[Rfam]
RNA sequence: ACAAGUUCAAGGCCAUAGCAGAAGCGUUCAUGCAUGGCAUGUCAGAUUCCAGCAAGUCUGCCAAUUCUGCU
Numbered sequence: 001a002c003a004a005g006u007u008c009a010a011g012g013c014c015a016u017a018g019c020a021g022a023a024g025c026g027u028u029c030a031u032g033c034a035u036g037g038c039a040u041g042u043c044a045g046a047u048u049c050c051a052g053c054a055a056g057u058c059u060g061c062c063a064a065u066u067c068u069g070c071u
Stems, first nucleotide, its partner, number of pairs: 012038003017071007024035001026033001043060006
RNA: Mammalian CPEB3 ribozyme
Organism: Crocodylus porosus